Shown here is a 65-nucleotide RNA from Caenorhabditis nigoni, a member of the family "Small nucleolar RNA SNORD18". Taxonomically the source falls in Caenorhabditis (Eukaryota, Eumetazoa, Nematoda, Rhabditina). Rfam 15.1 lists 2,622 matches to the family in 960 species.

RNA sequence: UGGCAGUGAUGAUCACAAAUCCGUGUUUCUGACAAGCGUUUGACGAUAGAAAACCGGCUGAGCCA
Number, nucleotide and partner (000 for none) at each position: 001u065002g064003g063004c062005a000006g000007u000008g000009a000010u000011g000012a000013u000014c000015a000016c000017a000018a000019a000020u000021c000022c000023g000024u000025g000026u000027u000028u000029c000030u000031g000032a000033c000034a000035a000036g000037c000038g000039u000040u000041u000042g000043a000044c000045g000046a000047u000048a000049g000050a000051a000052a000053a000054c000055c000056g000057g000058c000059u000060g000061a000062g004063c003064c002065a001